[Rfam]
RNA sequence: GACAGAGUAGAAGAUUUGCGUAAAGUGUUGCUAGAUGGAAUGUUGCUAGCAAACGAAAAGUCUCGGUAAGGACUUGCGAUUAAUCUUUGCAUUCGCUGCA
Numbered sequence: 001g002a003c004a005g006a007g008u009a010g011a012a013g014a015u016u017u018g019c020g021u022a023a024a025g026u027g028u029u030g031c032u033a034g035a036u037g038g039a040a041u042g043u044u045g046c047u048a049g050c051a052a053a054c055g056a057a058a059a060g061u062c063u064c065g066g067u068a069a070g071g072a073c074u075u076g077c078g079a080u081u082a083a084u085c086u087u088u089g090c091a092u093u094c095g096c097u098g099c100a
Base pairs, nucleotide, nucleotide: 003098004097005096010088011087012086013085014084015083016082018080019078020077021076025054026053028052029051030050031049032048033047034046038094039093040092041091042090058075059074060073061072062071063070

The record is a 100-nucleotide RNA from Fundicoccus ignavus, which matches "THF (Tetrahydrofolate) riboswitch aptamer" in Rfam. The family has 101 seed sequences and 747 matches in Rfam 15.1. Taxonomically the source falls in Fundicoccus (Bacteria, Bacillati, Bacillota, Bacilli). From the family's description: Tetrahydrofolate (THF) riboswitch was first reported for Ames et al. as an RNA motif in 5' untranslated (5'-UTR)regions of folate transport and biosynthesis genes in Firmicutes genomes. Rfam links the family to the GO term tetrahydrofolate metabolic process.